[Rfam]
The record is a 136-nucleotide RNA from Turnix velox, which matches "Small nucleolar RNA SNORA46" in Rfam. The base pairs follow the family's consensus structure, which was predicted with RNAfold. Its family is annotated with RNA processing and nucleolus in the Gene Ontology. The family has 22 seed sequences and 582 matches in Rfam 15.1.
RNA sequence: AGCACUAUUUUUAAACCUGUUGGUGGAAUUUUCUGACCACCGUGGGUUACGCUAUAGUGCAAAAGAAUCUCCUGGCUCUCAGAAUGUAGCUGGCUGCCCUAUUCAGCUCAUGCUUCUCUGAAGCUAAGGGACACAA
Dot-bracket structure: .(((((((.....((((...((((((..........))))))..)))).....))))))).......((.(((((((.(..((..(((((.((.........)).))...)))...)).).)))).))))).....